[Rfam]
RNA sequence: UAAAAGGAUGCGCGGGGGCAAUAGUUCUCUACGGAGAAUUAUUCCACAUACCGCAUAGGCUUUAUUGCCUGUGCAGAAUGGUCAUCAAGACAUUUUGCGCAUAUAAUUUUUUGAAGUAUUGGAUGGCUGUCUGGCUCCGCAUUUGAGCUGACGCCAUC
Numbered sequence: 001u002a003a004a005a006g007g008a009u010g011c012g013c014g015g016g017g018g019c020a021a022u023a024g025u026u027c028u029c030u031a032c033g034g035a036g037a038a039u040u041a042u043u044c045c046a047c048a049u050a051c052c053g054c055a056u057a058g059g060c061u062u063u064a065u066u067g068c069c070u071g072u073g074c075a076g077a078a079u080g081g082u083c084a085u086c087a088a089g090a091c092a093u094u095u096u097g098c099g100c101a102u103a104u105a106a107u108u109u110u111u112u113g114a115a116g117u118a119u120u121g122g123a124u125g126g127c128u129g130u131c132u133g134g135c136u137c138c139g140c141a142u143u144u145g146a147g148c149u150g151a152c153g154c155c156a157u158c
Stems, first nucleotide, its partner, number of pairs: 008102005013053003017049001054073007074097007124156004129152003133148001135147003
RNA: U11 spliceosomal RNA